Shown here is an 82-nucleotide sequence from Bombyx mori, a member of the family "bantam microRNA precursor family". The literature on the family includes a 2007 paper in Genome Biol by Weaver et al., "Computational and transcriptional evidence for microRNAs in the honey bee genome". The family's consensus secondary structure was predicted with RNAalifold. NCBI's taxonomy places the organism under Eukaryota, Eumetazoa, Pterygota, Lepidoptera, Bombyx. It is one of the family's seed sequences.
[Rfam]
RNA sequence: AAGGAACUACGAAACUGGUUUUCAUAAUGAUUUGACAGAUUGUUUUGUAUUCUGAGAUCAUUGUGAAAGCUAAUUUUGUUCC
Numbered sequence: 001a002a003g004g005a006a007c008u009a010c011g012a013a014a015c016u017g018g019u020u021u022u023c024a025u026a027a028u029g030a031u032u033u034g035a036c037a038g039a040u041u042g043u044u045u046u047g048u049a050u051u052c053u054g055a056g057a058u059c060a061u062u063g064u065g066a067a068a069g070c071u072a073a074u075u076u077u078g079u080u081c082c
Stems, first nucleotide, its partner, number of pairs: 009079006016072010028060006